[Rfam]
Shown here is a 144-nucleotide RNA from Hordeum vulgare, a member of the family "small nucleolar RNA snoR137". Its family is annotated with RNA processing and nucleolus in the Gene Ontology. It scores 59 bits against the family's covariance model. Taxonomically the source falls in Hordeum vulgare (Eukaryota, Triticodae, Hordeinae, Hordeum). A reference for the family is Chen and Wu (2009), "Mining small RNA sequencing data: a new approach to identify small nucleolar RNAs in Arabidopsis", Nucleic Acids Res.
RNA sequence: GUUGCUUCACAACUGGAAGGAUGGCCUGUUGAUAACAGUUCGGUCAUCCCGUAGAGGGAAGCAUAGAUGGACGGAAACACGGCCAGCAUUAAACAGCACGACGCUCAUCAAACCGCGUUGUGUUACCUGUCUUCUGGCACAUCC
Numbered sequence: 001g002u003u004g005c006u007u008c009a010c011a012a013c014u015g016g017a018a019g020g021a022u023g024g025c026c027u028g029u030u031g032a033u034a035a036c037a038g039u040u041c042g043g044u045c046a047u048c049c050c051g052u053a054g055a056g057g058g059a060a061g062c063a064u065a066g067a068u069g070g071a072c073g074g075a076a077a078c079a080c081g082g083c084c085a086g087c088a089u090u091a092a093a094c095a096g097c098a099c100g101a102c103g104c105u106c107a108u109c110a111a112a113c114c115g116c117g118u119u120g121u122g123u124u125a126c127c128u129g130u131c132u133u134c135u136g137g138c139a140c141a142u143c144c
Stems, first nucleotide, its partner, number of pairs: 003063006017052001019050002022046005082138005088132001095124003099120005